[Rfam]
RNA: Nuclear RNase P
RNA sequence: GGAGAAAGUUGGCUACGGUGCAAUUCUGGUCAUGUGUCAUGACUAACACCGGGGAAGGUCUGAGGCCAAGAAUGGGCGAGAGGCCCGCUGAGUGAAAGCUCAGGCGUUGUCACCAGAGAUCAGGUGGAAGUUGGUUUGCUCACUAGUGAGCCGGUGCGAGACUCUCGGGUUGCAUUUAUGUGAUCUGAGAUGAUGCUGUUACCUUCUUUUGCGUUGGAAUGGACGAUGCGCGCAGUUUCUUUUUAGUUUGAUGCACAACCGGUCUGUGACCCUGUGUCACGUAGGCCAAACCCAAUUCAGACUACUCUCUCC
Number, nucleotide and partner (000 for none) at each position: 001g000002g000003a310004g309005a308006a000007a000008g259009u258010u257011g256012g000013c000014u253015a000016c051017g050018g049019u048020g047021c000022a000023a000024u000025u000026c000027u000028g000029g000030u000031c000032a000033u000034g000035u000036g000037u000038c000039a000040u000041g000042a000043c000044u000045a000046a000047c020048a019049c018050c017051g016052g000053g000054g000055a000056a000057g000058g000059u000060c300061u299062g298063a297064g296065g000066c230067c000068a000069a000070g000071a000072a000073u087074g086075g085076g084077c083078g000079a000080g000081a000082g000083g077084c076085c075086c074087g073088c103089u102090g101091a100092g099093u098094g000095a000096a000097a000098g093099c092100u091101c090102a089103g088104g000105c228106g227107u226108u225109g224110u223111c222112a000113c000114c000115a000116g000117a000118g000119a000120u000121c000122a000123g000124g000125u213126g212127g000128a000129a000130g000131u000132u000133g000134g000135u000136u000137u000138g000139c000140u000141c000142a000143c000144u000145a000146g000147u000148g000149a000150g000151c000152c000153g000154g000155u000156g000157c000158g000159a000160g000161a000162c000163u000164c000165u000166c000167g000168g000169g000170u000171u000172g000173c000174a000175u000176u000177u000178a000179u000180g000181u000182g000183a000184u000185c000186u000187g000188a000189g000190a000191u000192g000193a000194u000195g000196c000197u000198g000199u000200u000201a000202c000203c000204u000205u000206c000207u000208u000209u000210u000211g000212c126213g125214u000215u000216g000217g000218a000219a000220u000221g000222g111223a110224c109225g108226a107227u106228g105229c000230g066231c000232g000233c000234a000235g000236u000237u000238u000239c000240u000241u000242u000243u000244u000245a000246g000247u000248u000249u000250g000251a000252u000253g014254c000255a000256c011257a010258a009259c008260c000261g287262g286263u285264c284265u283266g282267u281268g280269a000270c000271c000272c000273u000274g000275u000276g000277u000278c000279a000280c268281g267282u266283a265284g264285g263286c262287c261288a000289a000290a000291c000292c000293c000294a000295a000296u064297u063298c062299a061300g060301a000302c000303u000304a000305c000306u000307c000308u005309c004310u003311c000312c000